[Rfam]
The family of this 63-nucleotide RNA from Microcebus murinus is "U7 small nuclear RNA". Animal histone pre-mRNAs are spliced by a different mechanism than nuclear pre-mRNAs and self-splicing introns. The family's consensus secondary structure was predicted with PFOLD. On this family, see Spycher et al., Nucleic Acids Res 1994: "3' end processing of mouse histone pre-mRNA: evidence for additional base-pairing between U7 snRNA and pre-mRNA". Taxonomically the source falls in Microcebus (Eukaryota, Primates, Strepsirrhini, Cheirogaleidae).

RNA sequence: GAGUGUUACAGCUCUUAUAAAAGUUGUCUAGCAAGCUUUCUUGUUUUUACUGGAAACACCCCU
Numbered sequence: 001g002a003g004u005g006u007u008a009c010a011g012c013u014c015u016u017a018u019a020a021a022a023g024u025u026g027u028c029u030a031g032c033a034a035g036c037u038u039u040c041u042u043g044u045u046u047u048u049a050c051u052g053g054a055a056a057c058a059c060c061c062c063u
Stems, first nucleotide, its partner, number of pairs: 035059001037056005043050002
Dot-bracket structure: ..................................(.(((((.((....)).)))))..)....